[Rfam]
RNA sequence: UAAGUACACAUAGAAGGGACGAUGGGUGAAAGAUGGACUUUUAAUCUUAUUUUCAUGAGCAGUCGAAAACGAAUGUUUCAGUAAAAUAGGAUUAGUCUGCCCAUUUCCAAAAAAAGUAUUAAAAGCGGUGUUUUCUGCCGUUUUAUUUGCUGACUAAUCCUUCCAAAAUAAUUGGAGGGAUUUUUUU
Numbered sequence: 001u002a003a004g005u006a007c008a009c010a011u012a013g014a015a016g017g018g019a020c021g022a023u024g025g026g027u028g029a030a031a032g033a034u035g036g037a038c039u040u041u042u043a044a045u046c047u048u049a050u051u052u053u054c055a056u057g058a059g060c061a062g063u064c065g066a067a068a069a070c071g072a073a074u075g076u077u078u079c080a081g082u083a084a085a086a087u088a089g090g091a092u093u094a095g096u097c098u099g100c101c102c103a104u105u106u107c108c109a110a111a112a113a114a115a116g117u118a119u120u121a122a123a124a125g126c127g128g129u130g131u132u133u134u135c136u137g138c139c140g141u142u143u144u145a146u147u148u149g150c151u152g153a154c155u156a157a158u159c160c161u162u163c164c165a166a167a168a169u170a171a172u173u174g175g176a177g178g179g180a181u182u183u184u185u186u187u
Base pairs, nucleotide, nucleotide: 016108017107018106023103024102025101026100030096042094043093044092045091046090047089048088049087050086051085052084053083058077059076060075061074062070063069123143124142125141126140127139128138129137156182157181158180159179160178161177162176163175164174165173166172
The family of this 187-nucleotide sequence from Lysinibacillus odysseyi is "Bacillus sRNA ncr1575". It is annotated as a small RNA. It scores 102 bits against the family's covariance model. For this family Rfam cites "Identification of regulatory RNAs in Bacillus subtilis" (Irnov et al., Nucleic Acids Res, 2010).